[Rfam]
RNA sequence: AUGUCAGCUUGCAAUCUGCAGGCCGCAUAAUUCGGUAUAACUCCUUCCUUUGACCACGGAUGUACUGGCACUGGCAGUUAAAUGAUGAGUAGGAAGGUCGGUGCAUUUUUGCCCCGGCCUUUUUUAUU
Numbered sequence: 001a002u003g004u005c006a007g008c009u010u011g012c013a014a015u016c017u018g019c020a021g022g023c024c025g026c027a028u029a030a031u032u033c034g035g036u037a038u039a040a041c042u043c044c045u046u047c048c049u050u051u052g053a054c055c056a057c058g059g060a061u062g063u064a065c066u067g068g069c070a071c072u073g074g075c076a077g078u079u080a081a082a083u084g085a086u087g088a089g090u091a092g093g094a095a096g097g098u099c100g101g102u103g104c105a106u107u108u109u110u111g112c113c114c115c116g117g118c119c120u121u122u123u124u125u126a127u128u
Base pairs, nucleotide, nucleotide: 005025007023008022009021010020011019012018013017036087037086038085040083042081045076047074048073051070052069054068055067056066088127091124092123093122094121095120096119097118098117099116100115101114103112104111105110
The record is a 128-nucleotide sequence, which matches "Alphaproteobacterial sRNA ar35" in Rfam. A search with the family's covariance model found it, with a score of 69 bits.